RNA sequence: CGAGGCUCGUGCGGCGAGGUCUCUCGGCCGCUCGGCACACGCGCUGGCGCACCUUCCCCGGUGCCAGACCGUGACCAUCGAGCGGCCAGGGACCUGGUCGGACGAACCGAGGAGC
Numbered sequence: 001c002g003a004g005g006c007u008c009g010u011g012c013g014g015c016g017a018g019g020u021c022u023c024u025c026g027g028c029c030g031c032u033c034g035g036c037a038c039a040c041g042c043g044c045u046g047g048c049g050c051a052c053c054u055u056c057c058c059c060g061g062u063g064c065c066a067g068a069c070c071g072u073g074a075c076c077a078u079c080g081a082g083c084g085g086c087c088a089g090g091g092a093c094c095u096g097g098u099c100g101g102a103c104g105a106a107c108c109g110a111g112g113a114g115c
Stems, first nucleotide, its partner, number of pairs: 010102001012100004018094002021091004026087010038073004044067007